RNA sequence: CCGGAGUAAUCGCCGAGUCCUGCAUGGGCAGGAGCGGGGGAACCGAGUUUUUGGGGCGUAUCGCCGAUCAUGGCGAAGGGCAAGCUCUUCGGCCCGAGCCCGUCAGCUAACCUCGCAGGCGUCGAAGGGUAGAGCC
Numbered sequence: 001c002c003g004g005a006g007u008a009a010u011c012g013c014c015g016a017g018u019c020c021u022g023c024a025u026g027g028g029c030a031g032g033a034g035c036g037g038g039g040g041a042a043c044c045g046a047g048u049u050u051u052u053g054g055g056g057c058g059u060a061u062c063g064c065c066g067a068u069c070a071u072g073g074c075g076a077a078g079g080g081c082a083a084g085c086u087c088u089u090c091g092g093c094c095c096g097a098g099c100c101c102g103u104c105a106g107c108u109a110a111c112c113u114c115g116c117a118g119g120c121g122u123c124g125a126a127g128g129g130u131a132g133a134g135c136c
Stems, first nucleotide, its partner, number of pairs: 011121004018033005034116006044053002054101003062075004078095004
Overview:
The family of this 136-nucleotide sequence from Syntrophobacter fumaroxidans is "c-di-AMP riboswitch aptamer (ydaO/yuaA leader)". About the family: This family represents a conserved RNA structure found upstream of the ydaO and yuaA genes in Bacillus subtilis and related genes in other bacteria. The sequence is in the family's curated seed alignment. NCBI's taxonomy places the organism under Bacteria, Pseudomonadati, Syntrophobacteraceae, Syntrophobacter, Syntrophobacter fumaroxidans.